[Rfam]
Nucleotides: 135
Stems, first nucleotide, its partner, number of pairs: 003061006017047004022041003073129006086115002088111005
Number, partner (000 for none) and nucleotide at each position: 001000g002000u003061u004060g005059c006058u007057u008056c009000u010000u011000a012000c013000u014000u015000g016000u017047g018046a019045g020044u021000a022041c023040c024039u025000c026000u027000u028000a029000a030000u031000a032000u033000u034000a035000c036000g037000u038000g039024g040023g041022g042000a043000u044020g045019u046018u047017c048000c049000u050000g051000u052000u053000u054000c055000g056008g057007a058006a059005g060004c061003a062000u063000a064000u065000a066000u067000a068000g069000a070000u071000u072000u073129g074128c075127c076126a077125g078124u079000u080000u081000u082000a083000a084000a085000c086115a087114g088111u089110g090109a091108u092107g093000a094000g095000u096000a097000c098000a099000u100000a101000a102000u103000u104000u105000u106000g107092c108091a109090u110089c111088a112000c113000g114087c115086u116000a117000c118000c119000u120000u121000u122000c123000u124078a125077c126076u127075g128074g129073u130000a131000c132000a133000a134000a135000c

Shown here is a 135-nucleotide RNA from Anisodus acutangulus, a member of the family "small nucleolar RNA snoR137". Its family is annotated with RNA processing and nucleolus in the Gene Ontology. Pairs were carried over by alignment from the consensus structure, which was predicted with RNAalifold. It is annotated as an H/ACA-box small nucleolar RNA.